[Rfam]
RNA: Small Cajal body specific RNA 3
RNA sequence: UAUGGAAGCUGCAGAACCAACCAUGCAAACAAGUAAAAAACACCUUUUGUCUAAAAAUGACACAAUCCUAUAUAAACAUGGAAAUCUUUGUCUGACUUAGGACAGCUGGGGAAGUCUGGUUGUUCCCCUCCAUGUAAC
Numbered sequence: 001u002a003u004g005g006a007a008g009c010u011g012c013a014g015a016a017c018c019a020a021c022c023a024u025g026c027a028a029a030c031a032a033g034u035a036a037a038a039a040a041c042a043c044c045u046u047u048u049g050u051c052u053a054a055a056a057a058u059g060a061c062a063c064a065a066u067c068c069u070a071u072a073u074a075a076a077c078a079u080g081g082a083a084a085u086c087u088u089u090g091u092c093u094g095a096c097u098u099a100g101g102a103c104a105g106c107u108g109g110g111g112a113a114g115u116c117u118g119g120u121u122g123u124u125c126c127c128c129u130c131c132a133u134g135u136a137a138c
Stems, first nucleotide, its partner, number of pairs: 004068003008063001010062002024055001027052001029050002035047003080131003088122001090120003094116005